Rfam assigns this 104-nucleotide RNA from Brassica carinata to the family "Small nucleolar RNA snoR99". Rfam links the family to the GO terms nucleolus and RNA processing. On this family, see Marker et al., Curr Biol 2002: "Experimental RNomics: identification of 140 candidates for small non-messenger RNAs in the plant Arabidopsis thaliana". By type it is an H/ACA-box small nucleolar RNA. Taxonomically the source falls in Brassica (Eukaryota, Embryophyta, Mesangiospermae, Brassicales).

[Rfam]
RNA sequence: GUCUAAUAAGAUUGAACAAAGUCCCACACAUAGUUAGUCCAUCUGUUUCACUUUGUCAGCAGUCUCUAUUGGUUUCUCGCUGAUCAUUUCAAGAUGAUAUAUAU
Number, nucleotide and partner (000 for none) at each position: 001g000002u000003c000004u000005a000006a000007u000008a000009a000010g000011a000012u000013u000014g000015a000016a000017c000018a000019a000020a000021g000022u000023c000024c000025c000026a000027c000028a000029c000030a000031u000032a000033g000034u000035u000036a000037g000038u000039c000040c096041a095042u094043c093044u000045g000046u000047u000048u000049c000050a000051c000052u000053u000054u000055g084056u083057c082058a081059g080060c079061a000062g077063u000064c000065u000066c000067u000068a000069u000070u000071g000072g000073u000074u000075u000076c000077u062078c000079g060080c059081u058082g057083a056084u055085c000086a000087u000088u000089u000090c000091a000092a000093g043094a042095u041096g040097a000098u000099a000100u000101a000102u000103a000104u000